RNA sequence: UGAUGUUGCUCUGGAAUGACACGUUUUCUCCCGGAUCGCAAGAAAUACAAUACGCCACCGGGAAUUUCGUGUCAGCCAAGAAUGACAUCU
Dot-bracket structure: .(((((((.((.....(((((((.....((((((.(.((..(..........))).)))))))....))))))).....)).))))))).
A member of the RNA family "mir-731 microRNA precursor family" from Chanos chanos, 90 nucleotides long. The family has 2 seed sequences and 91 matches in Rfam 15.1. Taxonomically the source falls in Chanos (Eukaryota, Opisthokonta, Eumetazoa, Gonorynchiformes).